[Rfam]
RNA sequence: GCUAUGAUGCCGUAGCCAGCCUGCGUUUUUCAUACGCGCAGGCGGCGUACGUCAAUACGUGCCUGAUUCACUAUCAGAAGUCU
Numbered sequence: 001g002c003u004a005u006g007a008u009g010c011c012g013u014a015g016c017c018a019g020c021c022u023g024c025g026u027u028u029u030u031c032a033u034a035c036g037c038g039c040a041g042g043c044g045g046c047g048u049a050c051g052u053c054a055a056u057a058c059g060u061g062c063c064u065g066a067u068u069c070a071c072u073a074u075c076a077g078a079a080g081u082c083u
Base pairs, nucleotide, nucleotide: 015046016045017044019043020042021041022040023039024038025037026036047062048061049060050059051058052057
A member of the RNA family "Peptidase-S11 RNA", 83 nucleotides long.
The family's consensus secondary structure is taken from published work.
The sequence is in the family's curated seed alignment.